[Rfam]
RNA: Clostridiales-1 RNA
RNA sequence: UUAAGAUAAUUGAAAUAUAAAAGUCGGUUAUGGGUGUUUACACCGUAACCGGCUUUUUCUAUCAUGAAAGUGUCGUAUAUGAGGAAAAAAGCUGCGCGAAUAUAAUGAGCGAAGCGAUUUCCGAAUAUACAUCCAGGAUUUCGUGAGCGCGCCAGCGCGAAGAAAUCCGUACUUUCA
Number, nucleotide and partner (000 for none) at each position: 001u177002u000003a175004a174005g173006a000007u171008a000009a000010u068011u067012g000013a065014a000015a000016u061017a060018u000019a058020a057021a056022a055023g053024u052025c051026g050027g049028u048029u047030a046031u000032g000033g044034g043035u042036g041037u000038u000039u000040a000041c036042a035043c034044c033045g000046u030047a029048a028049c027050c026051g025052g024053c023054u000055u022056u021057u020058u019059c000060u017061a016062u000063c000064a000065u013066g000067a011068a010069a000070g000071u000072g000073u000074c000075g130076u129077a128078u127079a126080u125081g000082a000083g122084g121085a120086a119087a000088a000089a000090a000091g115092c114093u113094g000095c111096g110097c109098g000099a000100a000101u000102a000103u000104a000105a000106u000107g000108a000109g097110c096111g095112a000113a093114g092115c091116g000117a000118u000119u086120u085121c084122c083123g000124a000125a080126u079127a078128u077129a076130c075131a000132u000133c000134c000135a000136g168137g167138a166139u165140u164141u163142c162143g000144u000145g000146a000147g158148c157149g156150c155151g000152c000153c000154a000155g150156c149157g148158c147159g000160a000161a000162g142163a141164a140165a139166u138167c137168c136169g000170u000171a007172c000173u005174u004175u003176c000177a001